RNA sequence: UAUAAUCUUCAGGGCGGGGUGUAAGUCCCCACCGGCGGUAUAGCCCGCGAGCCUAAAUGGUAUGAUUCGGUGAAACUCCGAAGCCGACAGUAUAGUCUGGAUGGAAGAAGUAUAAA
Number, nucleotide and partner (000 for none) at each position: 001u000002a000003u114004a113005a000006u000007c110008u109009u108010c107011a000012g000013g000014g000015c000016g000017g029018g028019g027020u000021g000022u000023a000024a000025g000026u000027c019028c018029c017030c000031a096032c095033c086034g085035g048036c047037g046038g045039u000040a000041u000042a000043g084044c083045c038046c037047g036048c035049g000050a000051g000052c000053c060054u000055a000056a000057a000058u000059g000060g053061u000062a000063u000064g000065a000066u082067u081068c080069g079070g078071u000072g000073a000074a000075a000076c000077u000078c070079c069080g068081a067082a066083g044084c043085c034086g033087a000088c099089a098090g097091u000092a000093u000094a000095g032096u031097c090098u089099g088100g000101a000102u000103g000104g000105a000106a000107g010108a009109a008110g007111u000112a000113u004114a003115a000116a000
RNA: FMN riboswitch aptamer (RFN element)